[Rfam]
RNA sequence: ACAACACACUAGGGGAGCCGACAAGGCUGAGAUUGAACGUUCGUUCUAAACCCUUUGAACCUGAGAUGGGUAAUGCCAGCGUAGGGAAGUGGUGGAGUCUUUUU
Numbered sequence: 001a002c003a004a005c006a007c008a009c010u011a012g013g014g015g016a017g018c019c020g021a022c023a024a025g026g027c028u029g030a031g032a033u034u035g036a037a038c039g040u041u042c043g044u045u046c047u048a049a050a051c052c053c054u055u056u057g058a059a060c061c062u063g064a065g066a067u068g069g070g071u072a073a074u075g076c077c078a079g080c081g082u083a084g085g086g087a088a089g090u091g092g093u094g095g096a097g098u099c100u101u102u103u104u
Base pairs, nucleotide, nucleotide: 007091008090009089010088011054012053013052014051017027018026019025035046036045037044038043060085061084062083063082067078068077069076

TPP riboswitch aptamer (THI element): a 104-nucleotide RNA sequence from Bacillus smithii.